A member of the RNA family "SAM riboswitch aptamer (S box leader)" from Hymenobacter sp. BRD67, 110 nucleotides long. Lineage of the source: Bacteria > Pseudomonadati > Bacteroidota > Cytophagales > Hymenobacter.
[Rfam]
RNA sequence: UUUUUAUAACGAGGCGCGGAGAGACAGGCUCGAUGAAACGCCGGCAACCUUGGCUUGUGCCAAACGGUGCCAACCGAAGGCUGGCGCACUACGCGCCGGCGGUAUAAAAA
Numbered sequence: 001u002u003u004u005u006a007u008a009a010c011g012a013g014g015c016g017c018g019g020a021g022a023g024a025c026a027g028g029c030u031c032g033a034u035g036a037a038a039c040g041c042c043g044g045c046a047a048c049c050u051u052g053g054c055u056u057g058u059g060c061c062a063a064a065c066g067g068u069g070c071c072a073a074c075c076g077a078a079g080g081c082u083g084g085c086g087c088a089c090u091a092c093g094c095g096c097c098g099g100c101g102g103u104a105u106a107a108a109a110a
Stems, first nucleotide, its partner, number of pairs: 001110008013042004021031003025080001043071004048067002050063004075102001081099006